[Rfam]
RNA sequence: UUCUUAUUAGAUGAUGACUGCCAUGUGUCAUGUUCUAAUUGGUCAAUGAAAACAAUAAUUCAUUUAAUCUUUCAUGGAGUUGACAUCCAAUCAGAAUAUGACACGUGACAAUCAUCAUCC
Numbered sequence: 001u002u003c004u005u006a007u008u009a010g011a012u013g014a015u016g017a018c019u020g021c022c023a024u025g026u027g028u029c030a031u032g033u034u035c036u037a038a039u040u041g042g043u044c045a046a047u048g049a050a051a052a053c054a055a056u057a058a059u060u061c062a063u064u065u066a067a068u069c070u071u072u073c074a075u076g077g078a079g080u081u082g083a084c085a086u087c088c089a090a091u092c093a094g095a096a097u098a099u100g101a102c103a104c105g106u107g108a109c110a111a112u113c114a115u116c117a118u119c120c
Base pairs, nucleotide, nucleotide: 020109022107023106025104026103029100030099031098033096034095035094036093038091039090040089041088042087
Dot-bracket structure: ...................(.((.((..(((.((((.(((((............................................))))).)))).)))..)).)).)...........
Record summary: The family of this 120-nucleotide RNA sequence from Glycine max is "MIR1520 microRNA precursor family". Lineage of the source: Eukaryota > Streptophyta > Pentapetalae > Glycine > Glycine subgen. Soja. Rfam links the family to the GO terms RISC complex and miRNA-mediated post-transcriptional gene silencing. A search with the family's covariance model found it, with a score of 113 bits.